RNA sequence: UGAAGUGAUAGAGGCGCAAUGACCAUUAGUACAUAUUCUGAGGAGAAUGAGCUCUGUUGACGGAUUUCGAAAGGGGAAUUUGCCGAAGUAACUAGUGACUCAUAAAUUAGUUACUGGGCCUGCGAUUGAACAAAUCCAGGACUGUCGUAUAGUGGCGACGCUAUAUGGAGGGCUAUCUUACGC
Numbered sequence: 001u002g003a004a005g006u007g008a009u010a011g012a013g014g015c016g017c018a019a020u021g022a023c024c025a026u027u028a029g030u031a032c033a034u035a036u037u038c039u040g041a042g043g044a045g046a047a048u049g050a051g052c053u054c055u056g057u058u059g060a061c062g063g064a065u066u067u068c069g070a071a072a073g074g075g076g077a078a079u080u081u082g083c084c085g086a087a088g089u090a091a092c093u094a095g096u097g098a099c100u101c102a103u104a105a106a107u108u109a110g111u112u113a114c115u116g117g118g119c120c121u122g123c124g125a126u127u128g129a130a131c132a133a134a135u136c137c138a139g140g141a142c143u144g145u146c147g148u149a150u151a152g153u154g155g156c157g158a159c160g161c162u163a164u165a166u167g168g169a170g171g172g173c174u175a176u177c178u179u180a181c182g183c
Stems, first nucleotide, its partner, number of pairs: 007177005016083004023076002033067001035065004087115010116143002119140004124136004145168007
Dot-bracket structure: ......(((((....((((...((........(.((((.......................)))).).......))...))))...((((((((((.........))))))))))((.((((.((((.....)))))))).)).(((((((..........)))))))....)))))......
This 183-nucleotide sequence from Anaerobacillus alkaliphilus belongs to the Rfam family "Lysine riboswitch aptamer". The family's consensus secondary structure is taken from published work. A search with the family's covariance model found it, with a score of 109 bits.